RNA sequence: UCACUCUUGUUUCUCUUCAUCUCGUAUAAAUCUUUCGCCUUUUACUAAAGAUUUCCGUGGAGAGGAACACUAUGAGUAUCAACUAAUUUUUUGUGGCUCCACUUUCAGUGGAGCU
Numbered sequence: 001u002c003a004c005u006c007u008u009g010u011u012u013c014u015c016u017u018c019a020u021c022u023c024g025u026a027u028a029a030a031u032c033u034u035u036c037g038c039c040u041u042u043u044a045c046u047a048a049a050g051a052u053u054u055c056c057g058u059g060g061a062g063a064g065g066a067a068c069a070c071u072a073u074g075a076g077u078a079u080c081a082a083c084u085a086a087u088u089u090u091u092u093g094u095g096g097c098u099c100c101a102c103u104u105u106c107a108g109u110g111g112a113g114c115u
Base pairs, nucleotide, nucleotide: 003077004076005075006074009068010067011066012065013064014063015062016061017060018059019058028054029053030052031051032050033049034048035047096114097113098112099111100110101109
U5 spliceosomal RNA: a 115-nucleotide RNA sequence from Bagarius yarrelli. Rfam classes the family as a spliceosomal small nuclear RNA. The family's consensus secondary structure is taken from published work. The organism belongs to Bagarius, within Eukaryota. Rfam's curators write: U5 RNA is a component of both types of known spliceosome. The precise function of this molecule is unknown, though it is known that the 5' loop is required for splice site selection and p220 binding, and that both the 3' stem-loop and the Sm site are important for Sm protein binding and cap methylation. Its family is annotated with spliceosomal tri-snRNP complex assembly and U5 snRNP in the Gene Ontology. The match comes from Rfam's covariance-model search (98 bits).